[Rfam]
Nucleotides: 075
Stems, first nucleotide, its partner, number of pairs: 009067003013063002018058002023053004029048005035043003
Number, partner (000 for none) and nucleotide at each position: 001000c002000u003000a004000u005000a006000a007000a008000c009067g010066g011065g012000a013063u014062u015000g016000a017000a018058a019057u020000g021000a022000a023053a024052a025051u026050c027000c028000u029048u030047u031046u032045u033044g034000c035043u036042g037041c038000g039000a040000a041037g042036c043035a044033c045032a046031a047030a048029a049000a050026g051025a052024u053023u054000g055000c056000a057019a058018u059000g060000g061000a062014a063013a064000g065011c066010c067009c068000g069000g070000c071000u072000a073000u074000c075000g
Background:
Shown here is a 75-nucleotide sequence from Pedobacter sp. Hv1, a member of the family "Flavo-1 RNA". The base pairs follow the family's consensus structure, which is taken from published work. The family's RNA type in Rfam is small RNA. The match comes from Rfam's covariance-model search (59 bits).